[Rfam]
RNA sequence: CCCGCGGAAGGACGGAAAGACCCCGUGAACCUUCACUGCAGCUUGGCAUUGGCCGCUGGUCCGGCGCGUAGAGGAUAGGCGGGAGGCAUCGAUGCGGGGGCGCCAGCCCCCGCGGAGCCGCCCUUGGAAUACCGCCCUCGCCGCACCGGCGUCCUAACCCCGUCCCGUGGAGCCGGGCGGGGGACCGUGCCAGGUGGGCAGUUUGACUGGGGCGGUCGCCUCCUAAAAGGUAACGGAGGCGCGCGAAGGUCCGCUCGGGACGGUCGGCAACCGUCCUUUUGAGUGCAAGAGCGUAAGCGGGCUUGACUGCGAGGCCCACGAGCCGAGCAGGUGCGAAAGCAGGCUCUAGUGAUCCGGCGGCCCCACGUGGGAGGGCCGUCGCUCAACGGAUAAAAGGUACUCCGGGGAUAACAGGCUGAUCUUGCCCAAGAGUCCACAUCGACGGCAAGGUUUGGCACCUCGAUGUCGGCUCAUCGCAUCCUGGGGCUGGAGCAGGUCCCAAGGGUACGGCUGUUCGCCGUUUAAAGCGGUACGCGAGCUGGGUUCAGAACGUCGUGAGACAGUUCGGUCCCUAUCCUCCGCGGGCGCA
Numbered sequence: 001c002c003c004g005c006g007g008a009a010g011g012a013c014g015g016a017a018a019g020a021c022c023c024c025g026u027g028a029a030c031c032u033u034c035a036c037u038g039c040a041g042c043u044u045g046g047c048a049u050u051g052g053c054c055g056c057u058g059g060u061c062c063g064g065c066g067c068g069u070a071g072a073g074g075a076u077a078g079g080c081g082g083g084a085g086g087c088a089u090c091g092a093u094g095c096g097g098g099g100g101c102g103c104c105a106g107c108c109c110c111c112g113c114g115g116a117g118c119c120g121c122c123c124u125u126g127g128a129a130u131a132c133c134g135c136c137c138u139c140g141c142c143g144c145a146c147c148g149g150c151g152u153c154c155u156a157a158c159c160c161c162g163u164c165c166c167g168u169g170g171a172g173c174c175g176g177g178c179g180g181g182g183g184a185c186c187g188u189g190c191c192a193g194g195u196g197g198g199c200a201g202u203u204u205g206a207c208u209g210g211g212g213c214g215g216u217c218g219c220c221u222c223c224u225a226a227a228a229g230g231u232a233a234c235g236g237a238g239g240c241g242c243g244c245g246a247a248g249g250u251c252c253g254c255u256c257g258g259g260a261c262g263g264u265c266g267g268c269a270a271c272c273g274u275c276c277u278u279u280u281g282a283g284u285g286c287a288a289g290a291g292c293g294u295a296a297g298c299g300g301g302c303u304u305g306a307c308u309g310c311g312a313g314g315c316c317c318a319c320g321a322g323c324c325g326a327g328c329a330g331g332u333g334c335g336a337a338a339g340c341a342g343g344c345u346c347u348a349g350u351g352a353u354c355c356g357g358c359g360g361c362c363c364c365a366c367g368u369g370g371g372a373g374g375g376c377c378g379u380c381g382c383u384c385a386a387c388g389g390a391u392a393a394a395a396g397g398u399a400c401u402c403c404g405g406g407g408a409u410a411a412c413a414g415g416c417u418g419a420u421c422u423u424g425c426c427c428a429a430g431a432g433u434c435c436a437c438a439u440c441g442a443c444g445g446c447a448a449g450g451u452u453u454g455g456c457a458c459c460u461c462g463a464u465g466u467c468g469g470c471u472c473a474u475c476g477c478a479u480c481c482u483g484g485g486g487c488u489g490g491a492g493c494a495g496g497u498c499c500c501a502a503g504g505g506u507a508c509g510g511c512u513g514u515u516c517g518c519c520g521u522u523u524a525a526a527g528c529g530g531u532a533c534g535c536g537a538g539c540u541g542g543g544u545u546c547a548g549a550a551c552g553u554c555g556u557g558a559g560a561c562a563g564u565u566c567g568g569u570c571c572c573u574a575u576c577c578u579c580c581g582c583g584g585g586c587g588c589a
Stems, first nucleotide, its partner, number of pairs: 001585008010577003014572002022406004027402002029398005035202004042194007051154002054151007062143005068137001078136005085119003094113008158182003164177004205217004218240006241387001243344002249302006255282002258276006283292002307330004313324003332341003355381007363374002415456003419453001420450007430440002467542001468540004472534001473531005480505002483500006507521005548566004552561003

Shown here is a 589-nucleotide part of an RNA from Collinsella tanakaei, a member of the family "Bacterial large subunit ribosomal RNA". The organism belongs to Collinsella tanakaei, within Bacteria. The family is grouped with related families in Rfam's "LSU clan". Pairs were carried over by alignment from the consensus structure, which is taken from published work. It is one of the family's seed sequences.